[Rfam]
RNA sequence: UAACCGCUGACGACAAUCGUGUAUGUUA
Numbered sequence: 001u002a003a004c005c006g007c008u009g010a011c012g013a014c015a016a017u018c019g020u021g022u023a024u025g026u027u028a
Stems, first nucleotide, its partner, number of pairs: 001028004008023001010020004
Notes:
The record is a 28-nucleotide RNA sequence, which matches "L19-Flavobacteria ribosomal protein leader" in Rfam. Rfam's curators put it in the seed alignment. The base pairs follow the family's consensus structure, which is taken from published work. The family's RNA type in Rfam is cis-regulatory leader.